The record is a 273-nucleotide sequence from Microtus ochrogaster, which matches "Nuclear RNase P" in Rfam. It is annotated as a ribozyme. A reference for the family is Frank and Pace (1998), "Ribonuclease P: unity and diversity in a tRNA processing ribozyme", Annu Rev Biochem. The organism belongs to Microtus, within Eukaryota. It scores 178 bits against the family's covariance model.

[Rfam]
RNA sequence: GGCGGAGGAAGCUCAUCAGCGGGGCCACGCGCUGAGUGCUCGUCACUCCCCGGCCCCUGGGAAGGUCUGAGACUGGGCCCUCUCCCCCCGCGGUGAGUUCCCAGAGAGCAGGGCUCCGCGCGCAGGCAGACUGGGCAGGAGAGGCCCGCACCCCCAUGGCGGGCGGAUGCCCCCUCGCCGGAGCUUGGAACAGACUCAAGGCCGGCGGCACGAGUUCAAUGGCUGAGGUGAGGCACGCGCCUCAUAGCCCAAUUCAGACUACUCUCCCCCGCC
Numbered sequence: 001g002g003c004g005g006a007g008g009a010a011g012c013u014c015a016u017c018a019g020c021g022g023g024g025c026c027a028c029g030c031g032c033u034g035a036g037u038g039c040u041c042g043u044c045a046c047u048c049c050c051c052g053g054c055c056c057c058u059g060g061g062a063a064g065g066u067c068u069g070a071g072a073c074u075g076g077g078c079c080c081u082c083u084c085c086c087c088c089c090g091c092g093g094u095g096a097g098u099u100c101c102c103a104g105a106g107a108g109c110a111g112g113g114c115u116c117c118g119c120g121c122g123c124a125g126g127c128a129g130a131c132u133g134g135g136c137a138g139g140a141g142a143g144g145c146c147c148g149c150a151c152c153c154c155c156a157u158g159g160c161g162g163g164c165g166g167a168u169g170c171c172c173c174c175u176c177g178c179c180g181g182a183g184c185u186u187g188g189a190a191c192a193g194a195c196u197c198a199a200g201g202c203c204g205g206c207g208g209c210a211c212g213a214g215u216u217c218a219a220u221g222g223c224u225g226a227g228g229u230g231a232g233g234c235a236c237g238c239g240c241c242u243c244a245u246a247g248c249c250c251a252a253u254u255c256a257g258a259c260u261a262c263u264c265u266c267c268c269c270c271g272c273c
Stems, first nucleotide, its partner, number of pairs: 001273004007267003012227004017222001021057004034048005067257005076203004094198006113184005228245007